[Rfam]
RNA sequence: GUAGCUGCACCCAAUUUUUUUGACUGGAAAUCAAAGUGAUGAACUGAAGUUCGUUAUUUAUUUCUGGGUGUAGCUAGAAAGAUUUGUUCCCCUCGCUAUCCGGUGAUUCAAUCAGUGCAUCAACUGGACGUCGGGGAUUAACAUUC
Numbered sequence: 001g002u003a004g005c006u007g008c009a010c011c012c013a014a015u016u017u018u019u020u021u022g023a024c025u026g027g028a029a030a031u032c033a034a035a036g037u038g039a040u041g042a043a044c045u046g047a048a049g050u051u052c053g054u055u056a057u058u059u060a061u062u063u064c065u066g067g068g069u070g071u072a073g074c075u076a077g078a079a080a081g082a083u084u085u086g087u088u089c090c091c092c093u094c095g096c097u098a099u100c101c102g103g104u105g106a107u108u109c110a111a112u113c114a115g116u117g118c119a120u121c122a123a124c125u126g127g128a129c130g131u132c133g134g135g136g137a138u139u140a141a142c143a144u145u146c
Base pairs, nucleotide, nucleotide: 002077003075004074005073008070009069010068011067012066013065019060026058027057029055030054031053033051036050037049086139088137089136090135091134092133094130095129099128100127101126102125103124109117110116
Small nucleolar RNA snoR136: a 146-nucleotide RNA sequence from Kalanchoe fedtschenkoi. Lineage of the source: Eukaryota > Euphyllophyta > Spermatophyta > Saxifragales > Kalanchoe. A reference for the family is Chen and Wu (2009), "Mining small RNA sequencing data: a new approach to identify small nucleolar RNAs in Arabidopsis", Nucleic Acids Res. Gene Ontology terms of the family: nucleolus and RNA processing. The family has 8 seed sequences and 452 matches in Rfam 15.1.